RNA sequence: CGGCCGCCCGCGCCGAGUCCGGCCUGUCCGGAGCCGGGGACCCACGCAUUCUGGGGUGAAUCGGGUCCGGUCUUCCAGGCCGGGACCGUAGGGCAACCUUCCGACCCAUCGGCCCGAACCCGACAGCUAACCCGGUAGGCGGUCCACGGAAGGAGC
Numbered sequence: 001c002g003g004c005c006g007c008c009c010g011c012g013c014c015g016a017g018u019c020c021g022g023c024c025u026g027u028c029c030g031g032a033g034c035c036g037g038g039g040a041c042c043c044a045c046g047c048a049u050u051c052u053g054g055g056g057u058g059a060a061u062c063g064g065g066u067c068c069g070g071u072c073u074u075c076c077a078g079g080c081c082g083g084g085a086c087c088g089u090a091g092g093g094c095a096a097c098c099u100u101c102c103g104a105c106c107c108a109u110c111g112g113c114c115c116g117a118a119c120c121c122g123a124c125a126g127c128u129a130a131c132c133c134g135g136u137a138g139g140c141g142g143u144c145c146a147c148g149g150a151a152g153g154a155g156c
Stems, first nucleotide, its partner, number of pairs: 011141004018032003033136006043053002054121003062088003091115004
Dot-bracket structure: ..........((((...(((.........)))((((((....((.......))(((.....(((.....................)))..((((.................))))...))).........)))))).))))...............
RNA: c-di-AMP riboswitch aptamer (ydaO/yuaA leader)
Organism: Wenjunlia tyrosinilytica